[Rfam]
RNA: HNH endonuclease-associated RNA and ORF (HEARO) RNA
RNA sequence: GUCAGUCACCCACCGCUCAAGCGGCGGGCUUGCACGACAAGCCCUGACUGACCAGCACCCAGCUUGAGCAAUCAGGCUACGUUCGGAAGGAAAACAUAGGCACCGUGAGAUGCAUGCCAGUCUCACGCUCUGCGGCCAGCCGUUAAAAGUCCUGAUGGGUAGGGGCGGUGCGGCUGGCGUAUACAACCCUUCCAGAACAUGGUCGAGGCACACAUCAC
Dot-bracket structure: ((((((((.((.(.((....)).)..))((((.....))))...))))))))..(.(((.(((((((....)))))))..((((.(.(((.........((..((((((((...[[[[.))))))))....)).(((((((((...(.(((((.(....).)))))..))))))))))..........))).).))))..))))..]]]]........